Small nucleolar RNA SNORD24: a 71-nucleotide sequence. On this family, see Kiss-Laszlo et al., Cell 1996: "Site-specific ribose methylation of preribosomal RNA: a novel function for small nucleolar RNAs".
[Rfam]
RNA sequence: UGCAAGUGAUGCAAAAGUAUGUUACCUGGAAGAUGGUGAUGACACUUUAAACCACCAAGAUCGCUGAUGCA
Numbered sequence: 001u002g003c004a005a006g007u008g009a010u011g012c013a014a015a016a017g018u019a020u021g022u023u024a025c026c027u028g029g030a031a032g033a034u035g036g037u038g039a040u041g042a043c044a045c046u047u048u049a050a051a052c053c054a055c056c057a058a059g060a061u062c063g064c065u066g067a068u069g070c071a
Stems, first nucleotide, its partner, number of pairs: 001071004
The family's RNA type in Rfam is C/D-box small nucleolar RNA.